RNA: Small nucleolar RNA snoR97
RNA sequence: GUUUUCUGAUUCGCGCAGAGGCUGAAAAACUCGGAGAGCGUGUGUUGUCAUCAGCUUCGUCUCUUAUUUUCUGUGAGAUGGGAGUUAAAUAACAGCACGAGAUUC
Numbered sequence: 001g002u003u004u005u006c007u008g009a010u011u012c013g014c015g016c017a018g019a020g021g022c023u024g025a026a027a028a029a030c031u032c033g034g035a036g037a038g039c040g041u042g043u044g045u046u047g048u049c050a051u052c053a054g055c056u057u058c059g060u061c062u063c064u065u066a067u068u069u070u071c072u073g074u075g076a077g078a079u080g081g082g083a084g085u086u087a088a089a090u091a092a093c094a095g096c097a098c099g100a101g102a103u104u105c
Stems, first nucleotide, its partner, number of pairs: 041099007053086006060078004
Dot-bracket structure: ........................................(((((((.....((((((.((((...........))))..))))))......)))))))......